[Rfam]
RNA sequence: CUACGAUGAUGGCGAUAUUUUUUAUCAAUAGAAAUUGGCCUAGGGAGUUUUGAUAUCAGGGUAUGAGUGA
Numbered sequence: 001c002u003a004c005g006a007u008g009a010u011g012g013c014g015a016u017a018u019u020u021u022u023u024a025u026c027a028a029u030a031g032a033a034a035u036u037g038g039c040c041u042a043g044g045g046a047g048u049u050u051u052g053a054u055a056u057c058a059g060g061g062u063a064u065g066a067g068u069g070a
Stems, first nucleotide, its partner, number of pairs: 002069003008026004
A member of the RNA family "Small nucleolar RNA SNORD56" from Callithrix jacchus, 70 nucleotides long. NCBI's taxonomy places the organism under Eukaryota, Deuterostomia, Amniota, Callithrix, Callithrix. By type it is a C/D-box small nucleolar RNA. The family's consensus secondary structure was predicted with PFOLD. On this family, see Galardi et al., Mol Cell Biol 2002: "Purified box C/D snoRNPs are able to reproduce site-specific 2'-O-methylation of target RNA in vitro". Its family is annotated with nucleolus and RNA processing in the Gene Ontology.